[Rfam]
RNA sequence: CCAUGGUGGUGGCUGCCCCCAGGAAUGCCAUGGUGGUGGCUGC
Numbered sequence: 001c002c003a004u005g006g007u008g009g010u011g012g013c014u015g016c017c018c019c020c021a022g023g024a025a026u027g028c029c030a031u032g033g034u035g036g037u038g039g040c041u042g043c
Base pairs, nucleotide, nucleotide: 001033002032003031004030005029006028007027008026
Prion pseudoknot: a 43-nucleotide RNA from Catharus fuscescens.
The family's RNA type in Rfam is cis-regulatory element.
Gene Ontology term of the family: translation.
From the family's description: This family represents a predicted pseudoknot structure found in prion protein mRNA. It has been suggested that the family has a possible effect in prion protein translation.
The literature on the family includes a 2001 paper in Nucleic Acids Res by Barrette et al., "Pseudoknots in prion protein mRNAs confirmed by comparative sequence analysis and pattern searching".